[Rfam]
RNA sequence: AGCUUUGCGCAGUGGCAGUAUCGUAGCCUAUGAGGUUUAUCCGAGGCGCGAUUAUUGCUAGUUGAAAACUUUACCCAAUACCCCGCCUUGACGACUCACUGAGUCGGCAACGGCAAUUUUUGACGGUUUCUAAGGAAA
Numbered sequence: 001a002g003c004u005u006u007g008c009g010c011a012g013u014g015g016c017a018g019u020a021u022c023g024u025a026g027c028c029u030a031u032g033a034g035g036u037u038u039a040u041c042c043g044a045g046g047c048g049c050g051a052u053u054a055u056u057g058c059u060a061g062u063u064g065a066a067a068a069c070u071u072u073a074c075c076c077a078a079u080a081c082c083c084c085g086c087c088u089u090g091a092c093g094a095c096u097c098a099c100u101g102a103g104u105c106g107g108c109a110a111c112g113g114c115a116a117u118u119u120u121u122g123a124c125g126g127u128u129u130c131u132a133a134g135g136a137a138a
Base pairs, nucleotide, nucleotide: 020052021051022050023049024048026047027046028045034042035041085114086113087112088110089109090108092106093105094104095103096102097101127138128137129136130135
RNA: U4 spliceosomal RNA
Organism: Cynoglossus semilaevis